[Rfam]
Rfam assigns this 75-nucleotide sequence from Streptomyces echinatus to the family "ASpks TB sRNA". A search with the family's covariance model found it, with a score of 61 bits. A reference for the family is Arnvig and Young (2009), "Identification of small RNAs in Mycobacterium tuberculosis", Mol Microbiol. The base pairs follow the family's consensus structure, which is taken from published work.

Nucleotides: 075
Base pairs, nucleotide, nucleotide: 015025016024017023033071034070035069038065039064044059045058047056048055049054
Number, partner (000 for none) and nucleotide at each position: 001000c002000u003000u004000g005000a006000c007000c008000g009000a010000g011000c012000c013000c014000a015025g016024c017023c018000g019000c020000a021000g022000g023017g024016g025015c026000c027000g028000g029000c030000c031000g032000g033071c034070c035069g036000g037000c038065c039064u040000g041000u042000u043000c044059u045058c046000g047056c048055c049054g050000u051000a052000g053000g054049u055048g056047g057000c058045g059044a060000u061000g062000a063000g064039g065038g066000c067000c068000u069035c070034g071033g072000c073000c074000u075000c